[Rfam]
RNA sequence: ACUCUCCCACUCUGCAUGGUUACACAAGGCUUAACCCGUGUGACUUUCGUACCAGGAGAGAGAGGAAAGAGCUCCUCGGGAGUUGAGUGGCCUCGCGGUGGCCUCUCUAGCCUAGAGGAGCACAACAGGC
Numbered sequence: 001a002c003u004c005u006c007c008c009a010c011u012c013u014g015c016a017u018g019g020u021u022a023c024a025c026a027a028g029g030c031u032u033a034a035c036c037c038g039u040g041u042g043a044c045u046u047u048c049g050u051a052c053c054a055g056g057a058g059a060g061a062g063a064g065g066a067a068a069g070a071g072c073u074c075c076u077c078g079g080g081a082g083u084u085g086a087g088u089g090g091c092c093u094c095g096c097g098g099u100g101g102c103c104u105c106u107c108u109a110g111c112c113u114a115g116a117g118g119a120g121c122a123c124a125a126c127a128g129g130c
Stems, first nucleotide, its partner, number of pairs: 002064005008058001011056004018045008072120005079113002085107002089103004